[Rfam]
RNA sequence: GUAUUUCGAUGGCAAAACUAGAGUGAUCUAGUGACGCAAAGCUAUAGGGCCUAUGCUGAACAGGGUAGGUAGCCAGUUGCUUUU
Numbered sequence: 001g002u003a004u005u006u007c008g009a010u011g012g013c014a015a016a017a018c019u020a021g022a023g024u025g026a027u028c029u030a031g032u033g034a035c036g037c038a039a040a041g042c043u044a045u046a047g048g049g050c051c052u053a054u055g056c057u058g059a060a061c062a063g064g065g066u067a068g069g070u071a072g073c074c075a076g077u078u079g080c081u082u083u084u
Base pairs, nucleotide, nucleotide: 012037013036017032018031019030020029021028022027040078041077042076043075047074048073049070050069051068056064057063